[Rfam]
RNA sequence: GAGUUGAGCCUUAGUGAAUAUCUACACCAGUAAGUUUUUUUCUUCAUGCCAGAAGUACUUCAUAGUGUAGAUACUCCCUAAGGCUUAGUGG
Numbered sequence: 001g002a003g004u005u006g007a008g009c010c011u012u013a014g015u016g017a018a019u020a021u022c023u024a025c026a027c028c029a030g031u032a033a034g035u036u037u038u039u040u041u042c043u044u045c046a047u048g049c050c051a052g053a054a055g056u057a058c059u060u061c062a063u064a065g066u067g068u069a070g071a072u073a074c075u076c077c078c079u080a081a082g083g084c085u086u087a088g089u090g091g
Stems, first nucleotide, its partner, number of pairs: 004088011016076002019073008032060004037055005
RNA: MIR5200 microRNA precursor family
Organism: Triticum aestivum